[Rfam]
RNA: Small nucleolar RNA Z157/R69/R10
Organism: Lactuca saligna
RNA sequence: AUAUGUGCGAUGAUGAAGCAAUUUGUGGACUAGAGUUUCUGAUCGUGGGAUCUUCUUCCCAUUUAGUUUGACGACAAACCCUUGGCUGUCUGAGUACAAAU
Numbered sequence: 001a002u003a004u005g006u007g008c009g010a011u012g013a014u015g016a017a018g019c020a021a022u023u024u025g026u027g028g029a030c031u032a033g034a035g036u037u038u039c040u041g042a043u044c045g046u047g048g049g050a051u052c053u054u055c056u057u058c059c060c061a062u063u064u065a066g067u068u069u070g071a072c073g074a075c076a077a078a079c080c081c082u083u084g085g086c087u088g089u090c091u092g093a094g095u096a097c098a099a100a101u
Stems, first nucleotide, its partner, number of pairs: 001101002004098005036073001038071002043066001045062006